[Rfam]
Nucleotides: 205
Base pairs, nucleotide, nucleotide: 001060002059003058004057005056006055007054011051012050015046016045017044018043020041021039022038023037024036025035069139070138071137072136074134075133076132077131083128084127085126086125087124088123089122091120093118095116096115097112099111100110101109102108142199143198144197145196146195148193157186158185159184161182162181163180165178166177
Number, partner (000 for none) and nucleotide at each position: 001060c002059c003058c004057a005056g006055u007054g008000c009000c010000a011051g012050u013000g014000a015046g016045c017044u018043g019000u020041c021039c022038a023037g024036g025035u026000c027000u028000a029000c030000a031000c032000u033000g034000u035025a036024c037023c038022u039021g040000a041020g042000u043018c044017a045016g046015u047000g048000u049000u050012a051011c052000u053000c054007c055006a056005c057004u058003g059002g060001g061000a062000g063000a064000g065000a066000g067000a068000g069139g070138u071137g072136c073000a074134g075133c076132c077131a078000g079000u080000g081000a082000a083128g084127c085126c086125u087124g088123g089122c090000u091120c092000u093118g094000g095116g096115u097112g098000c099111u100110g101109c102108u103000g104000u105000u106000g107000u108102a109101g110100u111099g112097u113000c114000u115096a116095c117000c118093c119000u120091g121000u122089g123088c124087c125086a126085g127084g128083u129000g130000g131077u132076g133075g134074c135000a136072g137071c138070a139069c140000u141000a142199u143198g144197c145196c146195u147000g148193u149000c150000u151000g152000a153000g154000c155000g156000u157186g158185g159184g160000c161182u162181g163180u164000a165178u166177c167000c168000a169000c170000u171000c172000a173000u174000a175000g176000u177166g178165g179000g180163g181162c182161a183000g184159c185158c186157c187000u188000a189000g190000a191000c192000u193148g194000g195146a196145g197144g198143c199142a200000c201000a202000c203000a204000c205000u